[Rfam]
RNA sequence: GUACUUCCUCGUUAGGUGAGGCUCCUGUAUAAACAUAGGCCACUGCCCGGAAAUGUCGAGAGACGCCAAUGGGUAGAACAGGUAUUACCGGCAUAAGGUUUUACUUAAGGUGGCUGAGCAUUUUGUUUGACUCUACGUUAUACAGUGCCAAAGCUCAAACGAGUGGGGAGGUUA
Numbered sequence: 001g002u003a004c005u006u007c008c009u010c011g012u013u014a015g016g017u018g019a020g021g022c023u024c025c026u027g028u029a030u031a032a033a034c035a036u037a038g039g040c041c042a043c044u045g046c047c048c049g050g051a052a053a054u055g056u057c058g059a060g061a062g063a064c065g066c067c068a069a070u071g072g073g074u075a076g077a078a079c080a081g082g083u084a085u086u087a088c089c090g091g092c093a094u095a096a097g098g099u100u101u102u103a104c105u106u107a108a109g110g111u112g113g114c115u116g117a118g119c120a121u122u123u124u125g126u127u128u129g130a131c132u133c134u135a136c137g138u139u140a141u142a143c144a145g146u147g148c149c150a151a152a153g154c155u156c157a158a159a160c161g162a163g164u165g166g167g168g169a170g171g172u173u174a
Base pairs, nucleotide, nucleotide: 005170006169007168008167009166010165011160012159013096015155016154017153020149021148022147025145026144027143028142029141030140031139032138039114040113041112042111043110045074046073047072048071049070054065055064056063057062081105082104083103084102087099088098089097116133117132118131